[Rfam]
RNA: M-box riboswitch aptamer (ykoK leader)
RNA sequence: GAAUAUCCUUGUUAGGUGAGGCUACUAUAUGAACACAGUCUACUGCUCAGAAAUGUGGAGACACGCCAAUGAGUAUAACAGGCACUACCGGAUUAAGGUUUUGCUUAAUGUAGAUGAGGGAGAACCUCUACGUUAUAUAGUGUCAAAGCUCAAUGAAUGCAGGAAGGCC
Numbered sequence: 001g002a003a004u005a006u007c008c009u010u011g012u013u014a015g016g017u018g019a020g021g022c023u024a025c026u027a028u029a030u031g032a033a034c035a036c037a038g039u040c041u042a043c044u045g046c047u048c049a050g051a052a053a054u055g056u057g058g059a060g061a062c063a064c065g066c067c068a069a070u071g072a073g074u075a076u077a078a079c080a081g082g083c084a085c086u087a088c089c090g091g092a093u094u095a096a097g098g099u100u101u102u103g104c105u106u107a108a109u110g111u112a113g114a115u116g117a118g119g120g121a122g123a124a125c126c127u128c129u130a131c132g133u134u135a136u137a138u139a140g141u142g143u144c145a146a147a148g149c150u151c152a153a154u155g156a157a158u159g160c161a162g163g164a165a166g167g168c169c
Stems, first nucleotide, its partner, number of pairs: 006164004011154002013096001015150003020144003025140008039114005045074005054065004081105004087099003116128003